[Rfam]
RNA: MIR480 microRNA precursor family
RNA sequence: UAAUCUGUUUGGUGUAUAUUCUUAUUUAGUUAUGAUAAAACCACAUUUGAUUACUUAGAAUCAUUCGUUAUCAUAAGCUUGACUACAUUAUUGAAAUUAAAAAACACAUGACAGCUAUUGUGUGAAUAUUGUUGAGUUGGCCA
Numbered sequence: 001u002a003a004u005c006u007g008u009u010u011g012g013u014g015u016a017u018a019u020u021c022u023u024a025u026u027u028a029g030u031u032a033u034g035a036u037a038a039a040a041c042c043a044c045a046u047u048u049g050a051u052u053a054c055u056u057a058g059a060a061u062c063a064u065u066c067g068u069u070a071u072c073a074u075a076a077g078c079u080u081g082a083c084u085a086c087a088u089u090a091u092u093g094a095a096a097u098u099a100a101a102a103a104a105c106a107c108a109u110g111a112c113a114g115c116u117a118u119u120g121u122g123u124g125a126a127u128a129u130u131g132u133u134g135a136g137u138u139g140g141c142c143a
Stems, first nucleotide, its partner, number of pairs: 005140003008136002012132001014130001019125001024118002027114001029112003